[Rfam]
RNA sequence: GGAAGCAGAUGAGAUCUGGUGGUCUCCGCGGUCUUCAAAACCGUUGUUAGCCGCUUCGGCUAUGGCAAGUUCGAUUCUUGCCUCUUCC
Dot-bracket structure: (((((..(..((((((....)))))).(((((.......)))))...((((.......))))...((((.......)))))..)))))
Rfam assigns this 88-nucleotide sequence from Pelagibaculum spongiae to the family "Selenocysteine transfer RNA". The organism belongs to Pelagibaculum, within Bacteria.